[Rfam]
This 191-nucleotide RNA from Oryza sativa belongs to the Rfam family "MIR159 microRNA precursor family". The source organism's lineage runs through Eukaryota, commelinids, Poales, Oryzoideae and Oryza sativa. Its family is annotated with RISC complex and miRNA-mediated post-transcriptional gene silencing in the Gene Ontology.
RNA sequence: UGAUGUGAGGAGGAGCUCCUUUCGAUCCAAUUCAGGAGAGGAAGUGGUGGGAUGCAGCUGCCGGUUCAUGGAUACCUCUGCAGUUCAUGCCGGUAGGCCUGCACUUGCAUGGGUUUGCAUGACCUGGGAGAUGAACCUGCCAUUGUGUUCCUCUAUUGAUUGGAUUGAAGGGAGCUCCGGCUACACCUAUC
Numbered sequence: 001u002g003a004u005g006u007g008a009g010g011a012g013g014a015g016c017u018c019c020u021u022u023c024g025a026u027c028c029a030a031u032u033c034a035g036g037a038g039a040g041g042a043a044g045u046g047g048u049g050g051g052a053u054g055c056a057g058c059u060g061c062c063g064g065u066u067c068a069u070g071g072a073u074a075c076c077u078c079u080g081c082a083g084u085u086c087a088u089g090c091c092g093g094u095a096g097g098c099c100u101g102c103a104c105u106u107g108c109a110u111g112g113g114u115u116u117g118c119a120u121g122a123c124c125u126g127g128g129a130g131a132u133g134a135a136c137c138u139g140c141c142a143u144u145g146u147g148u149u150c151c152u153c154u155a156u157u158g159a160u161u162g163g164a165u166u167g168a169a170g171g172g173a174g175c176u177c178c179g180g181c182u183a184c185a186c187c188u189a190u191c
Stems, first nucleotide, its partner, number of pairs: 013177008023167007036154001058130002061127003067121004075113003